[Rfam]
Shown here is an 86-nucleotide RNA sequence from Firmicutes bacterium CAG:424, a member of the family "ZMP/ZTP riboswitch aptamer (pfl RNA motif)".
Rfam links the family to the GO terms one-carbon metabolic process and regulation of purine nucleotide biosynthetic process.
Taxonomically the source falls in Bacillota (Bacteria, Bacillati).
A search with the family's covariance model found it, with a score of 65 bits.

RNA sequence: CAUAGUUUUGAUUACUGACGGAUAGAUGUGGAGUACCACAGGGGAAUCAAGACCAUUUAUAGAAGCCGACCGUCUGGGCAACAUUU
Numbered sequence: 001c002a003u004a005g006u007u008u009u010g011a012u013u014a015c016u017g018a019c020g021g022a023u024a025g026a027u028g029u030g031g032a033g034u035a036c037c038a039c040a041g042g043g044g045a046a047u048c049a050a051g052a053c054c055a056u057u058u059a060u061a062g063a064a065g066c067c068g069a070c071c072g073u074c075u076g077g078g079c080a081a082c083a084u085u086u
Base pairs, nucleotide, nucleotide: 003055005053006052007051008050009049010048011047012046015043016042017074018073019072020071021070028039029038030037031036065079066078067077